[Rfam]
RNA sequence: GAUAAAGGGAGUGAAAGGCUCCCUCGCCGAAAGCCCAAGGUUUCCUGCGCAACGUUCAUCGGCGCAGGGUGAGUCGGCCCCUAAGGUGAGGCAGAAAUGCGUAGCCGAUGGGAAACAGGUUAAUAUUCCUGUACCUUAAUAUAAUGCGAUGUGGGGACGGAGAAGGUUAGGUCAGCCAAGUGUUGGAUAUCUUGGUUCAAGCGUGUAGGUAGAUUCUUUAGGCAAAUCCGGAGAGUCAAUACCGAGGCGUGAUAACGAGUGAACUUUGUUCAUGAAGUGAUUGAUACCAUGCUUCCAAGAAAAGCCACUAAGCUUCAGUUAUAUUAAGACCGUACCGCAAACCGACACAGGUGGGCAGGAUGAGAAUUCUAAGGCGCU
Numbered sequence: 001g002a003u004a005a006a007g008g009g010a011g012u013g014a015a016a017g018g019c020u021c022c023c024u025c026g027c028c029g030a031a032a033g034c035c036c037a038a039g040g041u042u043u044c045c046u047g048c049g050c051a052a053c054g055u056u057c058a059u060c061g062g063c064g065c066a067g068g069g070u071g072a073g074u075c076g077g078c079c080c081c082u083a084a085g086g087u088g089a090g091g092c093a094g095a096a097a098u099g100c101g102u103a104g105c106c107g108a109u110g111g112g113a114a115a116c117a118g119g120u121u122a123a124u125a126u127u128c129c130u131g132u133a134c135c136u137u138a139a140u141a142u143a144a145u146g147c148g149a150u151g152u153g154g155g156g157a158c159g160g161a162g163a164a165g166g167u168u169a170g171g172u173c174a175g176c177c178a179a180g181u182g183u184u185g186g187a188u189a190u191c192u193u194g195g196u197u198c199a200a201g202c203g204u205g206u207a208g209g210u211a212g213a214u215u216c217u218u219u220a221g222g223c224a225a226a227u228c229c230g231g232a233g234a235g236u237c238a239a240u241a242c243c244g245a246g247g248c249g250u251g252a253u254a255a256c257g258a259g260u261g262a263a264c265u266u267u268g269u270u271c272a273u274g275a276a277g278u279g280a281u282u283g284a285u286a287c288c289a290u291g292c293u294u295c296c297a298a299g300a301a302a303a304g305c306c307a308c309u310a311a312g313c314u315u316c317a318g319u320u321a322u323a324u325u326a327a328g329a330c331c332g333u334a335c336c337g338c339a340a341a342c343c344g345a346c347a348c349a350g351g352u353g354g355g356c357a358g359g360a361u362g363a364g365a366a367u368u369c370u371a372a373g374g375c376g377c378u
Base pairs, nucleotide, nucleotide: 006024007023008022009021010020011019025376026375027374028373033356034355035354036353039336040335044068045067046066047065048064049063053061054060075332076331077330080111081110085106086105087104089102091100092099093098115132116131117130118129119128135328136327137326138325139324140323141322142321143320144319145318146313147312151308152307153306154305159295160294161293162292165288166287167286170282171281172280173279174278175196176195177194178193179192180191197255201250202249203248204247208243209242210241213236214235215234216233217232218231219230221229222228259273260272261271262270263269342351343350358370359369360368
This 378-nucleotide part of an RNA from Methylophilales bacterium HTCC2181 belongs to the Rfam family "Bacterial large subunit ribosomal RNA". A search with the family's covariance model found it, with a score of 2830 bits. The source organism's lineage runs through Bacteria, Pseudomonadati, Pseudomonadota, Betaproteobacteria and Nitrosomonadales. The base pairs follow the family's consensus structure, which is taken from published work.